[Rfam]
RNA sequence: UUCUUAUUGGAUGAUGACUGUGACAUGUCAUGUUCUGAUUGGAUGUCAACUUCAUGAAAGAUAAAAUGCAUUGUUGUUUUCAUUGACCAAUCAGAACAUGACACGUGAAAGAUAAAAUGC
Numbered sequence: 001u002u003c004u005u006a007u008u009g010g011a012u013g014a015u016g017a018c019u020g021u022g023a024c025a026u027g028u029c030a031u032g033u034u035c036u037g038a039u040u041g042g043a044u045g046u047c048a049a050c051u052u053c054a055u056g057a058a059a060g061a062u063a064a065a066a067u068g069c070a071u072u073g074u075u076g077u078u079u080u081c082a083u084u085g086a087c088c089a090a091u092c093a094g095a096a097c098a099u100g101a102c103a104c105g106u107g108a109a110a111g112a113u114a115a116a117a118u119g120c
Stems, first nucleotide, its partner, number of pairs: 021108001023106001026103001029100003033096004038091003
Rfam assigns this 120-nucleotide RNA from Glycine max to the family "MIR1520 microRNA precursor family". The match comes from Rfam's covariance-model search (116 bits). Rfam 15.1 lists 1,934 matches to the family in 15 species. Pairs were carried over by alignment from the consensus structure, which was predicted with RNAalifold. The family is grouped with related families in Rfam's "MIR1520 microRNA precursor clan".